This 216-nucleotide sequence from Dictyobacter alpinus belongs to the Rfam family "HNH endonuclease-associated RNA and ORF (HEARO) RNA". Pairs were carried over by alignment from the consensus structure, which is taken from published work.
[Rfam]
RNA sequence: GUCAGGAACCCCACGCAUAAAUGCGGGGGCUUGCUCCGGUAAGCCCAGACCUGACCAGUCUCAGUUUUGAAACAGAAACUCCGUUCGGAGUGAAAUAGGUACGUCGGGGUGCUUUCCAGCCCCGACCUCUACGGCCACUGAUUAAACAGGAGUACAGGGUGAAUCCAGUGUCAUUGGCGUUAAACCACGCACGAACAUUGACGAGGAACACAUUAC
Numbered sequence: 001g002u003c004a005g006g007a008a009c010c011c012c013a014c015g016c017a018u019a020a021a022u023g024c025g026g027g028g029g030c031u032u033g034c035u036c037c038g039g040u041a042a043g044c045c046c047a048g049a050c051c052u053g054a055c056c057a058g059u060c061u062c063a064g065u066u067u068u069g070a071a072a073c074a075g076a077a078a079c080u081c082c083g084u085u086c087g088g089a090g091u092g093a094a095a096u097a098g099g100u101a102c103g104u105c106g107g108g109g110u111g112c113u114u115u116c117c118a119g120c121c122c123c124g125a126c127c128u129c130u131a132c133g134g135c136c137a138c139u140g141a142u143u144a145a146a147c148a149g150g151a152g153u154a155c156a157g158g159g160u161g162a163a164u165c166c167a168g169u170g171u172c173a174u175u176g177g178c179g180u181u182a183a184a185c186c187a188c189g190c191a192c193g194a195a196c197a198u199u200g201a202c203g204a205g206g207a208a209c210a211c212a213u214u215a216c
Stems, first nucleotide, its partner, number of pairs: 001055006010029002012026001016023002030043004058202003063080005083196005088190001090188003099132002103126008113210001115207003134178004139173004146169002149166003153162001
On this family, see Weinberg et al., Nature 2009: "Exceptional structured noncoding RNAs revealed by bacterial metagenome analysis".